[Rfam]
RNA sequence: GAGAGAUCCCUGCCCUCAGCCGUUUAGCUAUUUAAAUGUCAUCCCAUCAGAUGGUUAAACUAUUCUAAACAUUCUGGUGCUAAACGGAAUGAGGGUAGUCAUCCGUCUCAU
Numbered sequence: 001g002a003g004a005g006a007u008c009c010c011u012g013c014c015c016u017c018a019g020c021c022g023u024u025u026a027g028c029u030a031u032u033u034a035a036a037u038g039u040c041a042u043c044c045c046a047u048c049a050g051a052u053g054g055u056u057a058a059a060c061u062a063u064u065c066u067a068a069a070c071a072u073u074c075u076g077g078u079g080c081u082a083a084a085c086g087g088a089a090u091g092a093g094g095g096u097a098g099u100c101a102u103c104c105g106u107c108u109c110a111u
Stems, first nucleotide, its partner, number of pairs: 001109004011097008020087009044077003047068001049066003

A member of the RNA family "MIR5294 microRNA precursor family" from Medicago truncatula, 111 nucleotides long. It is one of the family's seed sequences. Gene Ontology terms of the family: RISC complex and miRNA-mediated post-transcriptional gene silencing. Taxonomically the source falls in Medicago (Eukaryota, Spermatophyta, Mesangiospermae, fabids).